[Rfam]
RNA: DUF805b RNA
Organism: Tenacibaculum sp. MAR_2009_124
RNA sequence: AAAGUGGAAUCCGAAAAACUUUAAAUAGAGUAGGAG
Numbered sequence: 001a002a003a004g005u006g007g008a009a010u011c012c013g014a015a016a017a018a019c020u021u022u023a024a025a026u027a028g029a030g031u032a033g034g035a036g
Base pairs, nucleotide, nucleotide: 002021003020004019005018010035011034012033